This 82-nucleotide RNA sequence from Callipepla squamata belongs to the Rfam family "Small nucleolar RNA SNORD111". The family's consensus secondary structure was predicted with RNAalifold.

RNA sequence: CAGCCUGAAAUGAUGUUGUGAAUUCAUGUCUCUUCUCUGAGGUGUAUUGUGGAGACAACCAGAUGAAUUUCUGAUCAGGCUU
Numbered sequence: 001c002a003g004c005c006u007g008a009a010a011u012g013a014u015g016u017u018g019u020g021a022a023u024u025c026a027u028g029u030c031u032c033u034u035c036u037c038u039g040a041g042g043u044g045u046a047u048u049g050u051g052g053a054g055a056c057a058a059c060c061a062g063a064u065g066a067a068u069u070u071c072u073g074a075u076c077a078g079g080c081u082u
Stems, first nucleotide, its partner, number of pairs: 002081004

The match comes from Rfam's covariance-model search (52 bits). A reference for the family is Galardi et al. (2002), "Purified box C/D snoRNPs are able to reproduce site-specific 2'-O-methylation of target RNA in vitro", Mol Cell Biol. Its family is annotated with nucleolus and RNA processing in the Gene Ontology.